Rfam assigns this 204-nucleotide RNA sequence from Corythaeola cristata to the family "Small nucleolar RNA SNORA74". The match comes from Rfam's covariance-model search (124 bits). Pairs were carried over by alignment from the consensus structure, which was predicted with PFOLD. Its family is annotated with nucleolus and RNA processing in the Gene Ontology.

[Rfam]
RNA sequence: UCCAGCAGUAGUCAGCUACCCAUUGCUGCGCAGUGCCUGAGAUAGUGUUAUGCUGCCGGGAGAGAAAGGCGCUGCCGAGUCACGCCUGGCACCGCUGGUGCUGUUCUGGUGCCAGUUGGUGCCAGGUUUUGGCAGCGCUCUGCAUGCUUGAGAGUGGAGUAACUCCUUCUCGGUGGAGUUAAUCCUAGAUUGGAUGCAGACAAC
Numbered sequence: 001u002c003c004a005g006c007a008g009u010a011g012u013c014a015g016c017u018a019c020c021c022a023u024u025g026c027u028g029c030g031c032a033g034u035g036c037c038u039g040a041g042a043u044a045g046u047g048u049u050a051u052g053c054u055g056c057c058g059g060g061a062g063a064g065a066a067a068g069g070c071g072c073u074g075c076c077g078a079g080u081c082a083c084g085c086c087u088g089g090c091a092c093c094g095c096u097g098g099u100g101c102u103g104u105u106c107u108g109g110u111g112c113c114a115g116u117u118g119g120u121g122c123c124a125g126g127u128u129u130u131g132g133c134a135g136c137g138c139u140c141u142g143c144a145u146g147c148u149u150g151a152g153a154g155u156g157g158a159g160u161a162a163c164u165c166c167u168u169c170u171c172g173g174u175g176g177a178g179u180u181a182a183u184c185c186u187a188g189a190u191u192g193g194a195u196g197c198a199g200a201c202a203a204c
Stems, first nucleotide, its partner, number of pairs: 001060003005056005011051002015046004020041001021039002025036002069138009084127010095115002097112001099111004140199006147192001156185003160181007
About this RNA
The family is grouped with related families in Rfam's "SNORA74 clan".